[Rfam]
RNA sequence: UUGGGACUUUUUUGGCACAAUAAAUAUUGUAGUAAUAAAAAUUUUAUUACUACAAUAUUUAUUGUGCCAAGAAAGUCCCAA
Numbered sequence: 001u002u003g004g005g006a007c008u009u010u011u012u013u014g015g016c017a018c019a020a021u022a023a024a025u026a027u028u029g030u031a032g033u034a035a036u037a038a039a040a041a042u043u044u045u046a047u048u049a050c051u052a053c054a055a056u057a058u059u060u061a062u063u064g065u066g067c068c069a070a071g072a073a074a075g076u077c078c079c080a081a
Base pairs, nucleotide, nucleotide: 001081002080003079005077006076007075010074011071012070013069014068015067016066017065018064021061023059024058025057026056027055028054029053030052
Shown here is an 81-nucleotide RNA from Aquarana catesbeiana, a member of the family "mir-16 microRNA precursor family". Lineage of the source: Eukaryota > Deuterostomia > Craniata > Tetrapoda > Aquarana. The base pairs follow the family's consensus structure, which was predicted with PFOLD.